This 65-nucleotide sequence from Trichonephila clavata belongs to the Rfam family "Bacillus-plasmid RNA". The family's RNA type in Rfam is small RNA. The family has 31 seed sequences and 155 matches in Rfam 15.1. It scores 32 bits against the family's covariance model.

Nucleotides: 065
Base pairs, nucleotide, nucleotide: 001056002055003054004053005052006051007050008049009048
Number, partner (000 for none) and nucleotide at each position: 001056u002055u003054u004053g005052u006051c007050a008049a009048u010000g011000g012000u013000a014000u015000c016000c017000g018000a019000c020000u021000a022000c023000c024000c025000u026000a027000a028000a029000a030000u031000u032000g033000u034000g035000a036000a037000u038000u039000u040000u041000g042000c043000c044000a045000a046000a047000a048009a049008u050007u051006g052005a053004c054003a055002a056001a057000u058000u059000u060000u061000u062000u063000u064000u065000a